[Rfam]
RNA sequence: AGCUGCGUGGUGAGCACAAAGCGAACUAUUCUUUCGCCUUUUACUAAAGAAUACCGUGUGCUCGCCACUUUUAAGCAGCAUACGCCAAUUUUUUAAGGGGUCGUUCCUUGUGGAAUAC
Numbered sequence: 001a002g003c004u005g006c007g008u009g010g011u012g013a014g015c016a017c018a019a020a021g022c023g024a025a026c027u028a029u030u031c032u033u034u035c036g037c038c039u040u041u042u043a044c045u046a047a048a049g050a051a052u053a054c055c056g057u058g059u060g061c062u063c064g065c066c067a068c069u070u071u072u073a074a075g076c077a078g079c080a081u082a083c084g085c086c087a088a089u090u091u092u093u094u095a096a097g098g099g100g101u102c103g104u105u106c107c108u109u110g111u112g113g114a115a116u117a118c
Stems, first nucleotide, its partner, number of pairs: 003078004008067011027053008100118002104114002
Dot-bracket structure: ..((((.(((((((((((........((((((((...........))))))))...))))))))))).......)))).....................((..((.......))..))
RNA: U5 spliceosomal RNA